Annotation:
A member of the RNA family "Small nucleolar RNA SNORD72" from Xenopus laevis, 77 nucleotides long. It is annotated as a C/D-box small nucleolar RNA. NCBI's taxonomy places the organism under Eukaryota, Opisthokonta, Craniata, Pipoidea, Xenopus. From the family's description: snoRNA HBII-240 belongs to the CD family of snoRNAs. On this family, see Huttenhofer et al., EMBO J 2001: "RNomics: an experimental approach that identifies 201 candidates for novel, small, non-messenger RNAs in mouse". Gene Ontology terms of the family: RNA processing and nucleolus. The family has 16 seed sequences and 726 matches in Rfam 15.1.

RNA sequence: CAUUUAUCAAUGAUGUUUGAUAUAAAUGUCUGAACAUAUGACACUUAGUGAUUUCAGUUUUGCAACUGAGAUAAAUG
Numbered sequence: 001c002a003u004u005u006a007u008c009a010a011u012g013a014u015g016u017u018u019g020a021u022a023u024a025a026a027u028g029u030c031u032g033a034a035c036a037u038a039u040g041a042c043a044c045u046u047a048g049u050g051a052u053u054u055c056a057g058u059u060u061u062g063c064a065a066c067u068g069a070g071a072u073a074a075a076u077g
Base pairs, nucleotide, nucleotide: 002076003075004074005073006072007071008070